[Rfam]
RNA: mir-92 microRNA precursor family
Organism: Neodrepanis coruscans
RNA sequence: CUUUCUGCACAGGUUGGGAUAAGUUGAAAUGCUGUGUGUGUCUGUGGCAUUUUGAUUAUCCCAACCUGUUGAGAUUGG
Numbered sequence: 001c002u003u004u005c006u007g008c009a010c011a012g013g014u015u016g017g018g019a020u021a022a023g024u025u026g027a028a029a030u031g032c033u034g035u036g037u038g039u040g041u042c043u044g045u046g047g048c049a050u051u052u053u054g055a056u057u058a059u060c061c062c063a064a065c066c067u068g069u070u071g072a073g074a075u076u077g078g
Stems, first nucleotide, its partner, number of pairs: 004074003009069006016062005022056001024054001026053009